[Rfam]
Shown here is a 169-nucleotide RNA from Vitiosangium sp. GDMCC 1.1324, a member of the family "Group II catalytic intron D1-D4-3". Lineage of the source: Bacteria > Pseudomonadati > Myxococcota > Myxococcales > Vitiosangium. Pairs were carried over by alignment from the consensus structure. About the family: Group II introns are found in rRNA, tRNA and mRNA of organelles in fungi, plants and protists, and also in mRNA in bacteria.

RNA sequence: CGGACCGCGAGGCCGACGUGAAGGAAGCGGGGAACGAAGCCGCGGGGCGACGAACAGGAACCUGUUGUGAGGCGGCACCGAGCGGGGCAAGCGGGCAAGAAACCGCGAAGCGCUGGUGACCAAGGCGAGGUGACGUAAAGCCGACGCUCGUGAGGUGAAGGUCGAUGUU
Numbered sequence: 001c002g003g004a005c006c007g008c009g010a011g012g013c014c015g016a017c018g019u020g021a022a023g024g025a026a027g028c029g030g031g032g033a034a035c036g037a038a039g040c041c042g043c044g045g046g047g048c049g050a051c052g053a054a055c056a057g058g059a060a061c062c063u064g065u066u067g068u069g070a071g072g073c074g075g076c077a078c079c080g081a082g083c084g085g086g087g088c089a090a091g092c093g094g095g096c097a098a099g100a101a102a103c104c105g106c107g108a109a110g111c112g113c114u115g116g117u118g119a120c121c122a123a124g125g126c127g128a129g130g131u132g133a134c135g136u137a138a139a140g141c142c143g144a145c146g147c148u149c150g151u152g153a154g155g156u157g158a159a160g161g162u163c164g165a166u167g168u169u
Stems, first nucleotide, its partner, number of pairs: 001015003005012002027169001030166001034162002039156003043152002045149005062143001064141003072136003076132004082126001085113001087111002091106004